The family of this 178-nucleotide RNA from Enterocloster bolteae is "Lysine riboswitch aptamer".
Taxonomically the source falls in Enterocloster bolteae (Bacteria, Bacillati, Bacillota, Clostridia).
Riboswitches are metabolite binding domains within certain messenger RNAs that serve as precision sensors for their corresponding targets.
The base pairs follow the family's consensus structure, which is taken from published work.
Gene Ontology term of the family: lysine biosynthetic process.

[Rfam]
RNA sequence: UCAUAGAGUAGAGGUUGCGUUGAUCAUGAGUAGAUAAGCCGGAUGUGGCAGGCACAGGUGAUGGCUUAGGGAAAGGGAGAAACGCCGAAGAGGAAGCGUUCCGUGUUCACGCCCCCUCUGGGCAUAUGGUUAAGAGCCGUAUGACUGUCAUCCGGGUGGAUGGAGAGCUACCAAAGAA
Numbered sequence: 001u002c003a004u005a006g007a008g009u010a011g012a013g014g015u016u017g018c019g020u021u022g023a024u025c026a027u028g029a030g031u032a033g034a035u036a037a038g039c040c041g042g043a044u045g046u047g048g049c050a051g052g053c054a055c056a057g058g059u060g061a062u063g064g065c066u067u068a069g070g071g072a073a074a075g076g077g078a079g080a081a082a083c084g085c086c087g088a089a090g091a092g093g094a095a096g097c098g099u100u101c102c103g104u105g106u107u108c109a110c111g112c113c114c115c116c117u118c119u120g121g122g123c124a125u126a127u128g129g130u131u132a133a134g135a136g137c138c139g140u141a142u143g144a145c146u147g148u149c150a151u152c153c154g155g156g157u158g159g160a161u162g163g164a165g166a167g168c169u170a171c172c173a174a175a176g177a178a
Stems, first nucleotide, its partner, number of pairs: 008171004017085005024078002035068007089119005096112004120146002123143008148163006